[Rfam]
RNA: Group II catalytic intron D1-D4-4
RNA sequence: UUAUCGGUGAAAGUCCGAUCGGGAGAACAGACUACACUCCCGUAGCCUGAGAGGCAUCGCGGAACGAAAGUGAACCGAUGAAGCCCUCUGACAAACAUUCUGCAGGAAUGCGGCGAAACUCCAGGUUGUAACGCAC
Numbered sequence: 001u002u003a004u005c006g007g008u009g010a011a012a013g014u015c016c017g018a019u020c021g022g023g024a025g026a027a028c029a030g031a032c033u034a035c036a037c038u039c040c041c042g043u044a045g046c047c048u049g050a051g052a053g054g055c056a057u058c059g060c061g062g063a064a065c066g067a068a069a070g071u072g073a074a075c076c077g078a079u080g081a082a083g084c085c086c087u088c089u090g091a092c093a094a095a096c097a098u099u100c101u102g103c104a105g106g107a108a109u110g111c112g113g114c115g116a117a118a119c120u121c122c123a124g125g126u127u128g129u130a131a132c133g134c135a136c
Stems, first nucleotide, its partner, number of pairs: 020042005050089005055080005064071002096110005113129003